[Rfam]
Nucleotides: 111
Base pairs, nucleotide, nucleotide: 007098008097009096010095011062012061013060014059017031018030019029020028021027038056039055040054041053042052067092068091069090070089073086074085075084076083
Number, partner (000 for none) and nucleotide at each position: 001000g002000u003000u004000a005000g006000u007098c008097a009096c010095u011062g012061g013060g014059a015000g016000u017031g018030c019029u020028g021027g022000a023000a024000a025000g026000g027021c028020c029019a030018g031017c032000u033000g034000a035000g036000a037000a038056a039055a040054a041053g042052a043000c044000c045000c046000u047000a048000u049000u050000a051000g052042u053041c054040u055039u056038u057000u058000a059014u060013c061012c062011c063000c064000u065000a066000a067092c068091c069090u070089g071000a072000u073086c074085u075084g076083g077000a078000u079000a080000a081000u082000a083076c084075c085074a086073g087000c088000g089070u090069a091068g092067g093000a094000a095010a096009g097008u098007g099000u100000a101000c102000a103000a104000a105000u106000a107000c108000u109000u110000a111000u